[Rfam]
Rfam assigns this 132-nucleotide RNA sequence from Panthera tigris to the family "Small nucleolar RNA SNORA1". It scores 95 bits against the family's covariance model. About the family: ACA1 is a member of the H/ACA class of snoRNA that guide the sites of modification of uridines to pseudouridines. Gene Ontology terms of the family: nucleolus and RNA processing. The organism belongs to Panthera tigris, within Eukaryota. The family has 29 seed sequences and 1,282 matches in Rfam 15.1.

RNA sequence: AGCCUCAUCCUAGAUGAGAACGGGCAUUGUUGUUUGUGGUGUCCACAGAUUGUUCGUGCGGCUACAUUGAGGCACAGGUCACGCUCCCAUCACGAGUGUAUUGCAGGGGUGACGGUGAGACCCGUACCAUUU
Numbered sequence: 001a002g003c004c005u006c007a008u009c010c011u012a013g014a015u016g017a018g019a020a021c022g023g024g025c026a027u028u029g030u031u032g033u034u035u036g037u038g039g040u041g042u043c044c045a046c047a048g049a050u051u052g053u054u055c056g057u058g059c060g061g062c063u064a065c066a067u068u069g070a071g072g073c074a075c076a077g078g079u080c081a082c083g084c085u086c087c088c089a090u091c092a093c094g095a096g097u098g099u100a101u102u103g104c105a106g107g108g109g110u111g112a113c114g115g116u117g118a119g120a121c122c123c124g125u126a127c128c129a130u131u132u
Stems, first nucleotide, its partner, number of pairs: 002062003006058003022044006074125002077122002088111004093106001